[Rfam]
Nucleotides: 075
Base pairs, nucleotide, nucleotide: 008035009034010033011032012031013030014029015028016027020071021070022069024067037061041053043052044051045050
Number, partner (000 for none) and nucleotide at each position: 001000g002000a003000g004000u005000a006000c007000g008035g009034g010033g011032c012031u013030c014029u015028a016027g017000u018000g019000c020071a021070g022069c023000u024067c025000g026000a027016c028015u029014a030013g031012a032011g033010c034009c035008c036000u037061g038000u039000a040000a041053u042000g043052g044051u045050a046000c047000u048000g049000a050045u051044a052043c053041a054000c055000a056000a057000c058000a059000u060000g061037u062000g063000u064000a065000u066000c067024g068000u069022g070021c071020u072000u073000u074000u075000g
This 75-nucleotide RNA from Alphacoronavirus porci belongs to the Rfam family "Coronavirus frameshifting stimulation element".
Its family is annotated with viral translational frameshifting in the Gene Ontology.
Rfam describes the family as follows. This family represents a conserved stem-loop found in Coronaviruses which can promote ribosomal frameshifting.
Taxonomically the source falls in Alphacoronavirus porci (Viruses, Orthocoronavirinae, Alphacoronavirus, Pedacovirus).